The record is a 698-nucleotide RNA sequence from Coniophora puteana, which matches "Nuclear RNase P" in Rfam.
RNA sequence: ACCAGCUCGAAAGCCACGAAGCUCGAUACGCACAGGAUGCACAUCGCAUCCUUACUCUCGAGCGGGCUAAGGUCUGAGUAUACUCUUCUCCCUCGAUAGGCUCUAGCUGAGCCCCGCUGUAACGGCGGAGCGAUGUACCAGAAAUGCAGGCGGGGCAAGCUCGACAUAUCCCCAUGACCCCUCUUGCUGCAGAAGCUGUAAUAGCUCCAGCAAUGCGGGAGAGGGUAGAGGGCUCGCGCCUUUGAAACGCAUCGCGGAGAAUCGGGCGCUUAGAUGGUAUGUCAUGCGACGUCGUCUCUACCGCACACAGGUCGAUCAUGGAGUAGUCUGGCGUUCCAUGGCUGCAUUCAUCCGUGUAAUCGUACCGUCGGCCGAUCGGGAAGCCAACAGAGUGCUUCACGCUCUGCUGGUGUCAGGGGCUUCAAUGGCCUCGCUGCCUCUUUCGUGCGGGGGUGUGCUAGCGCCCACGCUGGGGAGGUGAGCAUCCGCCCGUCACGUCGAAGUGGCGUGACGGUGUUGGUAUGUCGUUUUCAACAGCAUAUCCAAAGCUACGGGCCGCAUGACGCAGAGCCUCGGCUCUGGUGUGCAUGGGGAGACCUCGAUGAUGUCGCGUGCGCCUCUUUUCGCCCUUGAGUGCGAUUCGUGGCUCGUGGCUCUUUGGGAGCGCGAAACUCAAUUCAGACUACUCUCGAGCUGGU
Numbered sequence: 001a002c003c004a005g006c007u008c009g010a011a012a013g014c015c016a017c018g019a020a021g022c023u024c025g026a027u028a029c030g031c032a033c034a035g036g037a038u039g040c041a042c043a044u045c046g047c048a049u050c051c052u053u054a055c056u057c058u059c060g061a062g063c064g065g066g067c068u069a070a071g072g073u074c075u076g077a078g079u080a081u082a083c084u085c086u087u088c089u090c091c092c093u094c095g096a097u098a099g100g101c102u103c104u105a106g107c108u109g110a111g112c113c114c115c116g117c118u119g120u121a122a123c124g125g126c127g128g129a130g131c132g133a134u135g136u137a138c139c140a141g142a143a144a145u146g147c148a149g150g151c152g153g154g155g156c157a158a159g160c161u162c163g164a165c166a167u168a169u170c171c172c173c174a175u176g177a178c179c180c181c182u183c184u185u186g187c188u189g190c191a192g193a194a195g196c197u198g199u200a201a202u203a204g205c206u207c208c209a210g211c212a213a214u215g216c217g218g219g220a221g222a223g224g225g226u227a228g229a230g231g232g233c234u235c236g237c238g239c240c241u242u243u244g245a246a247a248c249g250c251a252u253c254g255c256g257g258a259g260a261a262u263c264g265g266g267c268g269c270u271u272a273g274a275u276g277g278u279a280u281g282u283c284a285u286g287c288g289a290c291g292u293c294g295u296c297u298c299u300a301c302c303g304c305a306c307a308c309a310g311g312u313c314g315a316u317c318a319u320g321g322a323g324u325a326g327u328c329u330g331g332c333g334u335u336c337c338a339u340g341g342c343u344g345c346a347u348u349c350a351u352c353c354g355u356g357u358a359a360u361c362g363u364a365c366c367g368u369c370g371g372c373c374g375a376u377c378g379g380g381a382a383g384c385c386a387a388c389a390g391a392g393u394g395c396u397u398c399a400c401g402c403u404c405u406g407c408u409g410g411u412g413u414c415a416g417g418g419g420c421u422u423c424a425a426u427g428g429c430c431u432c433g434c435u436g437c438c439u440c441u442u443u444c445g446u447g448c449g450g451g452g453g454u455g456u457g458c459u460a461g462c463g464c465c466c467a468c469g470c471u472g473g474g475g476a477g478g479u480g481a482g483c484a485u486c487c488g489c490c491c492g493u494c495a496c497g498u499c500g501a502a503g504u505g506g507c508g509u510g511a512c513g514g515u516g517u518u519g520g521u522a523u524g525u526c527g528u529u530u531u532c533a534a535c536a537g538c539a540u541a542u543c544c545a546a547a548g549c550u551a552c553g554g555g556c557c558g559c560a561u562g563a564c565g566c567a568g569a570g571c572c573u574c575g576g577c578u579c580u581g582g583u584g585u586g587c588a589u590g591g592g593g594a595g596a597c598c599u600c601g602a603u604g605a606u607g608u609c610g611c612g613u614g615c616g617c618c619u620c621u622u623u624u625c626g627c628c629c630u631u632g633a634g635u636g637c638g639a640u641u642c643g644u645g646g647c648u649c650g651u652g653g654c655u656c657u658u659u660g661g662g663a664g665c666g667c668g669a670a671a672c673u674c675a676a677u678u679c680a681g682a683c684u685a686c687u688c689u690c691g692a693g694c695u696g697g698u
Stems, first nucleotide, its partner, number of pairs: 001698004008691003013647007021063005035051006074681005088259004099113005114128005130255007149240003648669005
About this RNA:
Rfam describes the family as follows. Ribonuclease P (RNase P) is a ubiquitous endoribonuclease, found in archaea, bacteria and eukarya as well as chloroplasts and mitochondria.